[Rfam]
RNA sequence: CGGGGUUGGUCCUCCAUCCUUAACUCACACCGCUGUGCCUUUUUAUUUAUUUCACAAUUGUGUGAGUUGAGUACAGAGUGUCACCCCA
Numbered sequence: 001c002g003g004g005g006u007u008g009g010u011c012c013u014c015c016a017u018c019c020u021u022a023a024c025u026c027a028c029a030c031c032g033c034u035g036u037g038c039c040u041u042u043u044u045a046u047u048u049a050u051u052u053c054a055c056a057a058u059u060g061u062g063u064g065a066g067u068u069g070a071g072u073a074c075a076g077a078g079u080g081u082c083a084c085c086c087c088a
Base pairs, nucleotide, nucleotide: 004086005085007083008082009081010080012078013077019071020070021069022068023067024066025065026064027063028062034056035055036054037053
Rfam assigns this 88-nucleotide RNA sequence from Rissa tridactyla to the family "mir-1426 microRNA precursor family".
Pairs were carried over by alignment from the consensus structure, which was predicted with RNAalifold.
A search with the family's covariance model found it, with a score of 75 bits.
Rfam links the family to the GO terms miRNA-mediated post-transcriptional gene silencing and RISC complex.
The organism belongs to Rissa, within Eukaryota.